[Rfam]
RNA sequence: GCCAGCCCAUGACGACCUGGGCAGAAACCCCACCGUGGGCUGCCCUCGUCCGAGCCCCCUGGC
Numbered sequence: 001g002c003c004a005g006c007c008c009a010u011g012a013c014g015a016c017c018u019g020g021g022c023a024g025a026a027a028c029c030c031c032a033c034c035g036u037g038g039g040c041u042g043c044c045c046u047c048g049u050c051c052g053a054g055c056c057c058c059c060u061g062g063c
Stems, first nucleotide, its partner, number of pairs: 001063005014050003019045005029039003
RNA: Selenocysteine insertion sequence 1